Notes
This 416-nucleotide RNA from Candidatus Phytoplasma pini belongs to the Rfam family "Bacterial RNase P class B". The match comes from Rfam's covariance-model search (123 bits).

RNA sequence: AAUAUAGCCUAUUUAAUAAAAAUAAAUUUAGGAAAGUCCAUGUUAGCACAUGUUUAUUUUUAGGAAAGAUAUGUAAUGUUUGUGCUUAAGAAAAAAAUAACUUAAGGUGUUUAAUUAUAAUAUUAAACAACGGCUUUUUUUAAAUUCUAAAAAUUUAUAUAUGAAAAAAUUUUAUAUAAAUUCAUGAAUAUGAAAUAAUAAAGUGCCACAGAGACGAGUUAAUUAGAAAUAAUUAAAAUGAAACGCGGUAAACCCCUCAAGCUAAUAAUCCAAAAUAUGGUAGGAGCAUGUAAAAAUUAACCUUUCCUAUUCUUUUAUUGAUAAUAUAAGUUAAUUUUUAUACUUUUUCAAAAGGAAAAAGAGAUAAAUGAUCACACUUGUUUUUAAAAAACAAGAACAGAACAUGGCUUAUGCAU
Numbered sequence: 001a002a003u004a005u006a007g008c009c010u011a012u013u014u015a016a017u018a019a020a021a022a023u024a025a026a027u028u029u030a031g032g033a034a035a036g037u038c039c040a041u042g043u044u045a046g047c048a049c050a051u052g053u054u055u056a057u058u059u060u061u062a063g064g065a066a067a068g069a070u071a072u073g074u075a076a077u078g079u080u081u082g083u084g085c086u087u088a089a090g091a092a093a094a095a096a097a098u099a100a101c102u103u104a105a106g107g108u109g110u111u112u113a114a115u116u117a118u119a120a121u122a123u124u125a126a127a128c129a130a131c132g133g134c135u136u137u138u139u140u141u142a143a144a145u146u147c148u149a150a151a152a153a154u155u156u157a158u159a160u161a162u163g164a165a166a167a168a169a170u171u172u173u174a175u176a177u178a179a180a181u182u183c184a185u186g187a188a189u190a191u192g193a194a195a196u197a198a199u200a201a202a203g204u205g206c207c208a209c210a211g212a213g214a215c216g217a218g219u220u221a222a223u224u225a226g227a228a229a230u231a232a233u234u235a236a237a238a239u240g241a242a243a244c245g246c247g248g249u250a251a252a253c254c255c256c257u258c259a260a261g262c263u264a265a266u267a268a269u270c271c272a273a274a275a276u277a278u279g280g281u282a283g284g285a286g287c288a289u290g291u292a293a294a295a296a297u298u299a300a301c302c303u304u305u306c307c308u309a310u311u312c313u314u315u316u317a318u319u320g321a322u323a324a325u326a327u328a329a330g331u332u333a334a335u336u337u338u339u340a341u342a343c344u345u346u347u348u349c350a351a352a353a354g355g356a357a358a359a360a361g362a363g364a365u366a367a368a369u370g371a372u373c374a375c376a377c378u379u380g381u382u383u384u385u386a387a388a389a390a391a392c393a394a395g396a397a398c399a400g401a402a403c404a405u406g407g408c409u410u411a412u413g414c415a416u
Stems, first nucleotide, its partner, number of pairs: 004416002007412001008370001011028001013026002034410003038407005043265005048074008080260003084256001085106006107131001108129008132255002135197001138195001144189004152182010203253002205249003219236007269285003289342013343361006377395008
Dot-bracket structure: ...((.([..(.((..........)).).....(((.((((((((((((((((((...........)))))))).....(((.(((((((..........))))))(((((((((......)))))))).)((.(..(.....((((....((((((((((...........))))))))))...)))).....).).....(((((...........(((((((....)))))))..........)))..))))).))))))))...(((...........)))...(((((((((((((............................)))))))))))))((((((.......))))))........]......((((((((...)))))))).......)))))))).)..))
Source information
Ribonuclease P (RNase P) is a ubiquitous endoribonuclease, found in archaea, bacteria and eukarya as well as chloroplasts and mitochondria. It is annotated as a ribozyme.